[Rfam]
RNA sequence: CGUGUCUUGGCAGUCGGUUUUCACCGUGGUCUGCAGAGACAUGUCACUUCUGAGAUCAUUGUGAAAGCCAAUUGCCUUGUACAC
Numbered sequence: 001c002g003u004g005u006c007u008u009g010g011c012a013g014u015c016g017g018u019u020u021u022c023a024c025c026g027u028g029g030u031c032u033g034c035a036g037a038g039a040c041a042u043g044u045c046a047c048u049u050c051u052g053a054g055a056u057c058a059u060u061g062u063g064a065a066a067g068c069c070a071a072u073u074g075c076c077u078u079g080u081a082c083a084c
Stems, first nucleotide, its partner, number of pairs: 009076004016069009027058006035051003038045002
mir-81 microRNA precursor family: an 84-nucleotide RNA sequence from Caenorhabditis auriculariae. The organism belongs to Caenorhabditis, within Eukaryota. Rfam links the family to the GO terms miRNA-mediated post-transcriptional gene silencing and RISC complex. The base pairs follow the family's consensus structure, which was predicted with RNAalifold.